[Rfam]
RNA sequence: GAAAUUCGGUGCUACACACUCCUCCUCCCAGUGUCGCACCGAUAGGACUGGCAGCACUCCUCCUCCCAGUUGCCAGUCACCCAAAAUGACGCUCACCGGACCUCCUCCCCCGGUGAGCGUUAUUU
Numbered sequence: 001g002a003a004a005u006u007c008g009g010u011g012c013u014a015c016a017c018a019c020u021c022c023u024c025c026u027c028c029c030a031g032u033g034u035c036g037c038a039c040c041g042a043u044a045g046g047a048c049u050g051g052c053a054g055c056a057c058u059c060c061u062c063c064u065c066c067c068a069g070u071u072g073c074c075a076g077u078c079a080c081c082c083a084a085a086a087u088g089a090c091g092c093u094c095a096c097c098g099g100a101c102c103u104c105c106u107c108c109c110c111c112g113g114u115g116a117g118c119g120u121u122a123u124u125u
Base pairs, nucleotide, nucleotide: 007041008040009039011037012036014034015033016032017031046078047077048076049075050074051073052072053071054070055069089120090119091118092117093116094115095114096113097112098111099110
Dot-bracket structure: ......(((.((.((((.............)))).)).)))....((((((((((.............))))))))))..........(((((((((((..........))))))))))).....